This 96-nucleotide sequence belongs to the Rfam family "dinG RNA".

RNA sequence: AAUGAUACUUCCCUGAACCUGUCUGGCAAAGGGCCUGCGAUGAAGGAAACGCAGGGGAACGCUCGCCGCGUUUGAAAAAGAAUGCGGCCGGGUUUC
Numbered sequence: 001a002a003u004g005a006u007a008c009u010u011c012c013c014u015g016a017a018c019c020u021g022u023c024u025g026g027c028a029a030a031g032g033g034c035c036u037g038c039g040a041u042g043a044a045g046g047a048a049a050c051g052c053a054g055g056g057g058a059a060c061g062c063u064c065g066c067c068g069c070g071u072u073u074g075a076a077a078a079a080g081a082a083u084g085c086g087g088c089c090g091g092g093u094u095u096c
Stems, first nucleotide, its partner, number of pairs: 011033004034055006057096003061093002064090002068085005